Description
Rhizobiales sRNA Atu_At1: a 108-nucleotide sequence from Agrobacterium fabrum. The literature on the family includes a 2012 paper in RNA Biol by Wilms et al., "Deep sequencing uncovers numerous small RNAs on all four replicons of the plant pathogen Agrobacterium tumefaciens". It is one of the family's seed sequences. By type it is a small RNA.

[Rfam]
RNA sequence: UUCCAGGCCGUGUCAACCGGACGUGGCAGGGAUGACGAACGCGAUGGUUUUUCCGGUUUCUCAUCGCGGCCAACGAAACGGCAGUCGAGCGUCCAACCUGUCCGGCCG
Numbered sequence: 001u002u003c004c005a006g007g008c009c010g011u012g013u014c015a016a017c018c019g020g021a022c023g024u025g026g027c028a029g030g031g032a033u034g035a036c037g038a039a040c041g042c043g044a045u046g047g048u049u050u051u052u053c054c055g056g057u058u059u060c061u062c063a064u065c066g067c068g069g070c071c072a073a074c075g076a077a078a079c080g081g082c083a084g085u086c087g088a089g090c091g092u093c094c095a096a097c098c099u100g101u102c103c104g105g106c107c108g
Stems, first nucleotide, its partner, number of pairs: 006107004011023004025102006034093004040068007069082003